[Rfam]
RNA: Molybdenum/Tungsten riboswitch aptamer (Moco RNA motif)
RNA sequence: AUGAUAAACAUUAUCCGAAGUCAUUUUACCUAUGGCCAUGUUGGCUAGGGUAACUUGACCGGCAGGGUGCGUACCGGAAACGGUCGUACCUCCCAUUGUGGAAAGGAUAGUAUAUGUUGGGGUU
Numbered sequence: 001a002u003g004a005u006a007a008a009c010a011u012u013a014u015c016c017g018a019a020g021u022c023a024u025u026u027u028a029c030c031u032a033u034g035g036c037c038a039u040g041u042u043g044g045c046u047a048g049g050g051u052a053a054c055u056u057g058a059c060c061g062g063c064a065g066g067g068u069g070c071g072u073a074c075c076g077g078a079a080a081c082g083g084u085c086g087u088a089c090c091u092c093c094c095a096u097u098g099u100g101g102a103a104a105g106g107a108u109a110g111u112a113u114a115u116g117u118u119g120g121g122g123u124u
Base pairs, nucleotide, nucleotide: 003118004117006115011110012109013108014107015106016105020059021058022057023056026053027052028051029050030049034046035045036044037043065091066090067089068088069087070086073084074083075082076081092101093100